[Rfam]
RNA sequence: CAACAACGAAAGGAGGUGAUCCAGUGUCUCAUUGUCAUACCCUACGGUCCCCGGUUGCCGUGACCUGGAUCUUGGCCUCUGCCGAGAUCGGUGUGUAACGCACAUCAAUAGGCCGGCUUUUUCAGCGGGCCGUGGAACCGACAAUGGAAAGGCCGCCUCUUAGAGGCGGCCUU
Number, nucleotide and partner (000 for none) at each position: 001c000002a000003a000004c000005a000006a000007c000008g000009a000010a000011a000012g000013g000014a000015g022016g021017u000018g000019a000020u000021c016022c015023a000024g000025u000026g000027u000028c000029u000030c146031a145032u144033u143034g142035u141036c140037a000038u000039a000040c000041c000042c000043u074044a073045c000046g071047g070048u069049c068050c067051c000052c000053g000054g000055u000056u000057g000058c000059c000060g000061u000062g000063a000064c000065c000066u000067g050068g049069a048070u047071c046072u000073u044074g043075g000076c000077c000078u000079c000080u000081g117082c116083c115084g000085a000086g000087a109088u108089c000090g000091g000092u104093g103094u102095g101096u000097a000098a000099c000100g000101c095102a094103c093104a092105u000106c000107a000108a088109u087110a000111g000112g000113c000114c000115g083116g082117c081118u000119u000120u000121u000122u136123c135124a000125g133126c132127g000128g000129g000130c000131c000132g126133u125134g000135g123136a122137a000138c000139c000140g036141a035142c034143a033144a032145u031146g030147g000148a000149a173150a172151g171152g170153c169154c168155g167156c166157c165158u164159c163160u000161u000162a000163g159164a158165g157166g156167c155168g154169g153170c152171c151172u150173u149
This 173-nucleotide sequence from Microvirga makkahensis belongs to the Rfam family "caulobacter sRNA CC2171". The match comes from Rfam's covariance-model search (82 bits). Rfam classes the family as a small RNA.